[Rfam]
RNA sequence: GGAACCUGACGGGAACGAUCGUAUAGUACGAGAGGAACUCCGAUUGGUCACCACUGGUGUACCGGUUGUCCGAGAGGGCACGCGCCGGGCAGCCACGUGACACGGGGUAAGAGCUGAACGCAUCUAAGCUCGAAACCCACCUGGAAAAGAGGUUCCACCAUAGGUCACCCGUAGAAGACGGGUUCGAUAGACUCGGGGUGUACGCGCCAAGGCAACGAGGCGUUCAGCCCGCGAGCACUAACAGACCAACG
Numbered sequence: 001g002g003a004a005c006c007u008g009a010c011g012g013g014a015a016c017g018a019u020c021g022u023a024u025a026g027u028a029c030g031a032g033a034g035g036a037a038c039u040c041c042g043a044u045u046g047g048u049c050a051c052c053a054c055u056g057g058u059g060u061a062c063c064g065g066u067u068g069u070c071c072g073a074g075a076g077g078g079c080a081c082g083c084g085c086c087g088g089g090c091a092g093c094c095a096c097g098u099g100a101c102a103c104g105g106g107g108u109a110a111g112a113g114c115u116g117a118a119c120g121c122a123u124c125u126a127a128g129c130u131c132g133a134a135a136c137c138c139a140c141c142u143g144g145a146a147a148a149g150a151g152g153u154u155c156c157a158c159c160a161u162a163g164g165u166c167a168c169c170c171g172u173a174g175a176a177g178a179c180g181g182g183u184u185c186g187a188u189a190g191a192c193u194c195g196g197g198g199u200g201u202a203c204g205c206g207c208c209a210a211g212g213c214a215a216c217g218a219g220g221c222g223u224u225c226a227g228c229c230c231g232c233g234a235g236c237a238c239u240a241a242c243a244g245a246c247c248a249a250c251g
Stems, first nucleotide, its partner, number of pairs: 001156007010143004016046006023039001047101005055095003062088005067080005104138003111131005163247004167183005188240003192235004196230003204223005211216001

Background
This 251-nucleotide part of an RNA from Halostella sp. JP-L12 belongs to the Rfam family "Archaeal large subunit ribosomal RNA". A search with the family's covariance model found it, with a score of 2843 bits. Clan: LSU clan.